A member of the RNA family "Archaeal large subunit ribosomal RNA" from Halapricum desulfuricans, 259 nucleotides of a longer RNA.
RNA sequence: GAGUGUGUUUGUUUGGCGAGCCUAACCGGUGUAUCCGGGGAGGCAUAGGGAAACCAACAUGGCCGCAGCAUUGCCAGGGCCGCCGUCUUCAAGGGCGGGGAGUCAAACGAACACGACCCGAAUCCGGACGAUCUACUCCUGGGCAAGGUGAAGCGUGCCGAAAGGUACGUGGAAGCCUGUUAGCGUUGGUGUCCUACAAUACCCUCGCGUGAUCUAGGAGUAGGGGUGAAAGGCCCAUCGAGUCCGGCAACAGCUGGUU
Numbered sequence: 001g002a003g004u005g006u007g008u009u010u011g012u013u014u015g016g017c018g019a020g021c022c023u024a025a026c027c028g029g030u031g032u033a034u035c036c037g038g039g040g041a042g043g044c045a046u047a048g049g050g051a052a053a054c055c056a057a058c059a060u061g062g063c064c065g066c067a068g069c070a071u072u073g074c075c076a077g078g079g080c081c082g083c084c085g086u087c088u089u090c091a092a093g094g095g096c097g098g099g100g101a102g103u104c105a106a107a108c109g110a111a112c113a114c115g116a117c118c119c120g121a122a123u124c125c126g127g128a129c130g131a132u133c134u135a136c137u138c139c140u141g142g143g144c145a146a147g148g149u150g151a152a153g154c155g156u157g158c159c160g161a162a163a164g165g166u167a168c169g170u171g172g173a174a175g176c177c178u179g180u181u182a183g184c185g186u187u188g189g190u191g192u193c194c195u196a197c198a199a200u201a202c203c204c205u206c207g208c209g210u211g212a213u214c215u216a217g218g219a220g221u222a223g224g225g226g227u228g229a230a231a232g233g234c235c236c237a238u239c240g241a242g243u244c245c246g247g248c249a250a251c252a253g254c255u256g257g258u259u
Base pairs, nucleotide, nucleotide: 005114006113007112008111009110010109011108012107013106014105015104016103017102020044021043022042023041026038027037028036029035048055049054061081062080063079064078068074069073084097085096086095087094117257118256120254124247125246126245127244128243129242133223134222135221136220137219138218139217140216141215142214143213144211146178147177148176149175153170154169155168156167157166158165159164183208184207185206188204189203191202192201225235226234227233